Notes
Rfam assigns this 75-nucleotide RNA sequence from Crocodylus porosus to the family "mir-551 microRNA precursor family". On this family, see Murchison et al., Genome Res 2008: "Conservation of small RNA pathways in platypus". NCBI's taxonomy places the organism under Eukaryota, Euteleostomi, Archelosauria, Archosauria, Crocodylus. A search with the family's covariance model found it, with a score of 77 bits. Gene Ontology terms of the family: RISC complex and miRNA-mediated post-transcriptional gene silencing.

[Rfam]
RNA sequence: AGGCUCCAGAAAUCAAGGGUGGGUAAGACCUCGUAAGAACAGUUGAAGGCGACCCAUACUUGGUUUCAGGGGCUU
Numbered sequence: 001a002g003g004c005u006c007c008a009g010a011a012a013u014c015a016a017g018g019g020u021g022g023g024u025a026a027g028a029c030c031u032c033g034u035a036a037g038a039a040c041a042g043u044u045g046a047a048g049g050c051g052a053c054c055c056a057u058a059c060u061u062g063g064u065u066u067c068a069g070g071g072g073c074u075u
Stems, first nucleotide, its partner, number of pairs: 002074006009067006016060002021055004029049003